RNA sequence: AUCUGAAAAAGGCAAAGCCACUGAAAGGUGGCGGCGCAAAAUCACCGGUCUAAGGGGCUUCAGCCCUAUGACGGCGGGAUCGCCAGA
Numbered sequence: 001a002u003c004u005g006a007a008a009a010a011g012g013c014a015a016a017g018c019c020a021c022u023g024a025a026a027g028g029u030g031g032c033g034g035c036g037c038a039a040a041a042u043c044a045c046c047g048g049u050c051u052a053a054g055g056g057g058c059u060u061c062a063g064c065c066c067u068a069u070g071a072c073g074g075c076g077g078g079a080u081c082g083c084c085a086g087a
Stems, first nucleotide, its partner, number of pairs: 012037002017032006041080003045077003048072003055066004
Dot-bracket structure: ...........((...((((((....))))))...))...(((.((((((....((((....))))...)))..)))))).......
RNA: c-di-GMP-I riboswitch aptamer